[Rfam]
RNA sequence: UGUGGCGUGUCAGCGAAACCGUUACCAUUACUGAGUUUAGUAAUGGUAAGGGUUCUUCUGCCCCGCCCGAU
Numbered sequence: 001u002g003u004g005g006c007g008u009g010u011c012a013g014c015g016a017a018a019c020c021g022u023u024a025c026c027a028u029u030a031c032u033g034a035g036u037u038u039a040g041u042a043a044u045g046g047u048a049a050g051g052g053u054u055c056u057u058c059u060g061c062c063c064c065g066c067c068c069g070a071u
Stems, first nucleotide, its partner, number of pairs: 007064001009062001011060003017054004022049012

The record is a 71-nucleotide sequence from Ophiophagus hannah, which matches "mir-451 microRNA precursor family" in Rfam. The family has 22 seed sequences and 658 matches in Rfam 15.1. A reference for the family is Zhu et al. (2008), "Role of MicroRNA miR-27a and miR-451 in the regulation of MDR1/P-glycoprotein expression in human cancer cells", Biochem Pharmacol. The base pairs follow the family's consensus structure, which was predicted with RNAalifold. Its family is annotated with RISC complex and miRNA-mediated post-transcriptional gene silencing in the Gene Ontology.